[Rfam]
RNA sequence: UGACGUUCUCGGGGCGGGGUGAAAGUCCCCACCGGCGGUAUUUGCAUCCGGUUUUCGGACCGGCGCAUCAGCCCGCGAGCGCCCGCACGGCCUUCCGGCCGGACGGGGACAGCAGACCCGGUGUGACUCCGGGGCCGACGGUAUAGUCCGGAUGAUAGAGAACGAGG
Numbered sequence: 001u002g003a004c005g006u007u008c009u010c011g012g013g014g015c016g017g018g019g020u021g022a023a024a025g026u027c028c029c030c031a032c033c034g035g036c037g038g039u040a041u042u043u044g045c046a047u048c049c050g051g052u053u054u055u056c057g058g059a060c061c062g063g064c065g066c067a068u069c070a071g072c073c074c075g076c077g078a079g080c081g082c083c084c085g086c087a088c089g090g091c092c093u094u095c096c097g098g099c100c101g102g103a104c105g106g107g108g109a110c111a112g113c114a115g116a117c118c119c120g121g122u123g124u125g126a127c128u129c130c131g132g133g134g135c136c137g138a139c140g141g142u143a144u145a146g147u148c149c150g151g152a153u154g155a156u157a158g159a160g161a162a163c164g165a166g167g
Stems, first nucleotide, its partner, number of pairs: 004164007017029003031147002033137002035076004071135002079113002117133005139150003
Dot-bracket structure: ...(((((((......(((.......))).[[((((((................................[[))))..((...............................))...(((((.......)))))]])).(((....]]))).......)))))))...

Rfam assigns this 167-nucleotide RNA sequence from Gluconacetobacter johannae to the family "FMN riboswitch aptamer (RFN element)".
The base pairs follow the family's consensus structure, which is taken from published work.
It scores 108 bits against the family's covariance model.
Rfam describes the family as follows. The RFN element is a highly conserved domain that is found frequently in the 5'-untranslated regions of prokaryotic mRNAs that encode for flavin mononucleotide (FMN) biosynthesis and transport proteins. This element is a metabolite-dependent riboswitch that directly binds FMN in the absence of proteins. In Bacillus subtilis, the riboswitch most likely controls gene expression by causing premature transcription termination within the 5' untranslated region of the ribDEAHT operon and precluding access to the ribosome-binding site of ypaA mRNA.The FMN riboswitch structure, reported in present an FMN-bound six-stem junction, adopts a butterfly-like scaffold, stapled together by opposingly directed but nearly identically folded peripheral domains.